[Rfam]
Shown here is an 84-nucleotide sequence from Gossypium mustelinum, a member of the family "Plastid-psbM 3UTR RNA". The match comes from Rfam's covariance-model search (59 bits). Rfam describes the family as follows. Plastid psbM is a non-coding RNA (ncRNA) recognised in plastids. It was found in the three prime untranslated region (3UTR) of psbM gene, its 3UTR location suggests a role in transcript maturation.
RNA sequence: AACUCGAUAGUAUGGUAGAAAAAAAUAUGAAUCUUUCUACCAUACUAUCUAUAUCUAUUAUUGUCAUAAUUUAUGGGAACAACU
Numbered sequence: 001a002a003c004u005c006g007a008u009a010g011u012a013u014g015g016u017a018g019a020a021a022a023a024a025a026u027a028u029g030a031a032u033c034u035u036u037c038u039a040c041c042a043u044a045c046u047a048u049c050u051a052u053a054u055c056u057a058u059u060a061u062u063g064u065c066a067u068a069a070u071u072u073a074u075g076g077g078a079a080c081a082a083c084u
Stems, first nucleotide, its partner, number of pairs: 006049016023032001